Rfam assigns this 101-nucleotide RNA sequence from Fibrobacter succinogenes to the family "Fibrobacter-1 RNA". By type it is a small RNA. The source organism's lineage runs through Bacteria, Fibrobacterota, Fibrobacterales, Fibrobacter and Fibrobacter succinogenes subsp. succinogenes.

RNA sequence: UAUUUAAGGUCCCCAGGCUCUGCUUUGCAGGCGGGCGGUACUUUCCGUCAAGAAACAUCGGGAGCUCGGACACGGUCCAUACUUUUGGACUGGUCUUGGGG
Numbered sequence: 001u002a003u004u005u006a007a008g009g010u011c012c013c014c015a016g017g018c019u020c021u022g023c024u025u026u027g028c029a030g031g032c033g034g035g036c037g038g039u040a041c042u043u044u045c046c047g048u049c050a051a052g053a054a055a056c057a058u059c060g061g062g063a064g065c066u067c068g069g070a071c072a073c074g075g076u077c078c079a080u081a082c083u084u085u086u087g088g089a090c091u092g093g094u095c096u097u098g099g100g101g
Stems, first nucleotide, its partner, number of pairs: 011101005019031004034049005068096004075090005